Shown here is a 64-nucleotide sequence from Carlito syrichta, a member of the family "mir-290 microRNA precursor family".
RNA sequence: GGUGUACUCAAAAUUGAGGCCCUUUCUUUUUUGACCUAGAAAGUGCUUCGAUUUUGGGUUUUCC
Numbered sequence: 001g002g003u004g005u006a007c008u009c010a011a012a013a014u015u016g017a018g019g020c021c022c023u024u025u026c027u028u029u030u031u032u033g034a035c036c037u038a039g040a041a042a043g044u045g046c047u048u049c050g051a052u053u054u055u056g057g058g059u060u061u062u063c064c
Stems, first nucleotide, its partner, number of pairs: 004061001006059015022043002025040003
Dot-bracket structure: ...(.(((((((((((((((.((.(((..........))).)).))))))))))))))).)...
Description
It scores 51 bits against the family's covariance model.